[Rfam]
RNA sequence: GUUCCCGUGGCUCAAUUGGAUAGAGCGUCGGCCUCCGGAGCCGAAGGUUGCAGGUUCGAAUCCUGCCGGGAACG
Number, nucleotide and partner (000 for none) at each position: 001g073002u072003u071004c070005c069006c068007g067008u000009g000010g026011c025012u024013c023014a000015a000016u000017u000018g000019g000020a000021u000022a000023g013024a012025g011026c010027g000028u044029c043030g042031g041032c040033c000034u000035c000036c000037g000038g000039a000040g032041c031042c030043g029044a028045a000046g000047g000048u000049u000050g066051c065052a064053g063054g062055u000056u000057c000058g000059a000060a000061u000062c054063c053064u052065g051066c050067c007068g006069g005070g004071a003072a002073c001074g000